Rfam assigns this 80-nucleotide sequence from Sciurus carolinensis to the family "mir-598 microRNA precursor family".
Its family is annotated with RISC complex and miRNA-mediated post-transcriptional gene silencing in the Gene Ontology.
The match comes from Rfam's covariance-model search (76 bits).
RNA sequence: GCUGAUGCUGGCGGUGAUGCCGAUGGUGCACGCUGGGAAUGGCUUACUCCGUCAUCGUUGUCAUCAUCAUCAUCAUCAUC
Numbered sequence: 001g002c003u004g005a006u007g008c009u010g011g012c013g014g015u016g017a018u019g020c021c022g023a024u025g026g027u028g029c030a031c032g033c034u035g036g037g038a039a040u041g042g043c044u045u046a047c048u049c050c051g052u053c054a055u056c057g058u059u060g061u062c063a064u065c066a067u068c069a070u071c072a073u074c075a076u077c078a079u080c
Stems, first nucleotide, its partner, number of pairs: 001077001003075005009069003013065005021060008029051001032047001